[Rfam]
RNA sequence: ACGGACGAAGGUUUCAUCAAUCGUGUUACAGAUAAACGUGUCGGUCGGUGGGACUUUCGUUCGUUU
Numbered sequence: 001a002c003g004g005a006c007g008a009a010g011g012u013u014u015c016a017u018c019a020a021u022c023g024u025g026u027u028a029c030a031g032a033u034a035a036a037c038g039u040g041u042c043g044g045u046c047g048g049u050g051g052g053a054c055u056u057u058c059g060u061u062c063g064u065u066u
Stems, first nucleotide, its partner, number of pairs: 002063007010055007018047001020045003
The record is a 66-nucleotide sequence from Acyrthosiphon pisum, which matches "mir-278 microRNA precursor family" in Rfam. Its family is annotated with RISC complex and miRNA-mediated post-transcriptional gene silencing in the Gene Ontology. The base pairs follow the family's consensus structure, which was predicted with RNAalifold. The organism belongs to Acyrthosiphon, within Eukaryota.